[Rfam]
RNA sequence: UGCAGCCUUGUCAAAUUCGGUGUUUCCUCCUCAGUGGACCACACUGGCCAAAAUGGCUGCAACAGUGAAAUUGUAGCCCAUGGGCCUCACGUUCCUGUAUAGUGGAUAUUGGGGAUAGAAGGGCUAUGUACAAUG
Numbered sequence: 001u002g003c004a005g006c007c008u009u010g011u012c013a014a015a016u017u018c019g020g021u022g023u024u025u026c027c028u029c030c031u032c033a034g035u036g037g038a039c040c041a042c043a044c045u046g047g048c049c050a051a052a053a054u055g056g057c058u059g060c061a062a063c064a065g066u067g068a069a070a071u072u073g074u075a076g077c078c079c080a081u082g083g084g085c086c087u088c089a090c091g092u093u094c095c096u097g098u099a100u101a102g103u104g105g106a107u108a109u110u111g112g113g114g115a116u117a118g119a120a121g122g123g124c125u126a127u128g129u130a131c132a133a134u135g
Stems, first nucleotide, its partner, number of pairs: 002060004018046006025038003073127006085114005
RNA: Small nucleolar RNA SNORA5
Organism: Onychostoma macrolepis